[Rfam]
RNA: Selenocysteine transfer RNA
RNA sequence: GGGGGUAGAUGGGUUCUGGUGUGCCCUCUGGUCUUCAAAACCAGCGCGAGGGGUUAGUAGCCUCUUGGGUGGGUUCGAUUCCCACGUACUCCC
Numbered sequence: 001g002g003g004g005g006u007a008g009a010u011g012g013g014u015u016c017u018g019g020u021g022u023g024c025c026c027u028c029u030g031g032u033c034u035u036c037a038a039a040a041c042c043a044g045c046g047c048g049a050g051g052g053g054u055u056a057g058u059a060g061c062c063u064c065u066u067g068g069g070u071g072g073g074u075u076c077g078a079u080u081c082c083c084a085c086g087u088a089c090u091c092c093c
Stems, first nucleotide, its partner, number of pairs: 001093007008085001011026004016021001028044005047067005070084004